[Rfam]
RNA sequence: CCGGCCCCGGUUCACGCCGCCCGAUGCCGCUCGGAGACACCACGUCGUUCCUGACGGGGAUCCGCGCGGCCGAAGUCCGGACGGCGACCCGGAGCC
Numbered sequence: 001c002c003g004g005c006c007c008c009g010g011u012u013c014a015c016g017c018c019g020c021c022c023g024a025u026g027c028c029g030c031u032c033g034g035a036g037a038c039a040c041c042a043c044g045u046c047g048u049u050c051c052u053g054a055c056g057g058g059g060a061u062c063c064g065c066g067c068g069g070c071c072g073a074a075g076u077c078c079g080g081a082c083g084g085c086g087a088c089c090c091g092g093a094g095c096c
Base pairs, nucleotide, nucleotide: 003096004095005094007092008091009090010089015086016085017084018083019082021080022079023078